[Rfam]
RNA: Saccharomyces telomerase, nucleotides 937 to 1226
Organism: Saccharomyces arboricola
RNA sequence: AAGGCCACCCUUUCUCAAGCAUUGAAUAGGCUUGUGAGCGAAUGAUAACGGGGAAACGAUACAAGACGAAAGGAUAUAAGUUGAGAUUUUCUUAGAUUGGUUCAUUCAGAUAUCUCUUUAGCCAUUUUCGAUAAUCAAUACAAUGUUCUUGUCCCAUUCUUGUUAUAAAGGCCGGACAUUAAUUUCCAAGCGGAAAAAAUUGUAUGUUCAUUUAUGGGCUUUCGUGUUGUAAACUUUCUCCAUUUGAAUGAGUAGUCAAUUCCUUUUUCGAUGCAUACAAGAUAAUUUUU
Number, nucleotide and partner (000 for none) at each position: 001a000002a000003g000004g000005c000006c000007a000008c000009c000010c000011u000012u000013u000014c000015u000016c000017a000018a000019g274020c273021a272022u271023u270024g269025a268026a000027u000028a000029g000030g000031c000032u000033u000034g000035u000036g000037a000038g000039c000040g000041a000042a000043u000044g000045a000046u000047a000048a000049c000050g000051g000052g000053g000054a000055a000056a000057c000058g000059a000060u231061a230062c229063a228064a227065g000066a225067c224068g223069a000070a000071a000072g000073g000074a000075u216076a215077u214078a213079a212080g000081u000082u210083g209084a208085g207086a000087u000088u000089u000090u000091c000092u000093u000094a000095g000096a000097u000098u000099g000100g000101u000102u000103c000104a000105u000106u000107c000108a000109g000110a000111u000112a000113u000114c000115u000116c000117u000118u000119u000120a000121g000122c000123c000124a000125u000126u000127u000128u000129c000130g136131a135132u000133a000134a000135u131136c130137a000138a205139u204140a203141c202142a201143a200144u199145g000146u196147u195148c000149u193150u192151g191152u190153c000154c000155c000156a000157u000158u000159c000160u000161u000162g000163u000164u000165a000166u000167a000168a000169a000170g000171g000172c000173c000174g000175g000176a000177c000178a000179u000180u000181a000182a000183u000184u000185u000186c000187c000188a000189a000190g152191c151192g150193g149194a000195a147196a146197a000198a000199a144200u143201u142202g141203u140204a139205u138206g000207u085208u084209c083210a082211u000212u079213u078214a077215u076216g075217g000218g000219c000220u000221u000222u000223c068224g067225u066226g000227u064228u063229g062230u061231a060232a000233a000234c000235u000236u000237u000238c000239u000240c000241c000242a000243u000244u255245u254246g253247a000248a000249u000250g000251a000252g000253u246254a245255g244256u000257c000258a000259a000260u000261u000262c000263c000264u000265u000266u000267u000268u025269c024270g023271a022272u021273g020274c019275a000276u000277a000278c000279a000280a000281g000282a000283u000284a000285a000286u000287u000288u000289u000290u000